[Rfam]
RNA sequence: ACGAUGUUCCGCUGCAUUUAUAGGCAAAAGUCCUGCAAGAGCGUCUG
Numbered sequence: 001a002c003g004a005u006g007u008u009c010c011g012c013u014g015c016a017u018u019u020a021u022a023g024g025c026a027a028a029a030g031u032c033c034u035g036c037a038a039g040a041g042c043g044u045c046u047g
Base pairs, nucleotide, nucleotide: 003045004044005043006042007041008040009039013037014036015035016034

About this RNA:
This 47-nucleotide RNA sequence from Bacillus yapensis belongs to the Rfam family "Ribosomal protein L19 leader". The source organism's lineage runs through Bacteria, Bacillati, Bacillota, Bacilli and Bacillus. Rfam classes the family as a cis-regulatory leader. From the family's description: This family is a putative r-protein leader autoregulatory structure found in B. subtilis and other low-GC Gram-positive bacteria. It is located in the 5' untranslated regions of mRNAs encoding ribosomal protein L19 (rplS). For this family Rfam cites "Diverse mechanisms for regulating ribosomal protein synthesis in Escherichia coli" (Zengel and Lindahl, Prog Nucleic Acid Res Mol Biol, 1994). The match comes from Rfam's covariance-model search (38 bits). Pairs were carried over by alignment from the consensus structure, which was predicted with CMfinder.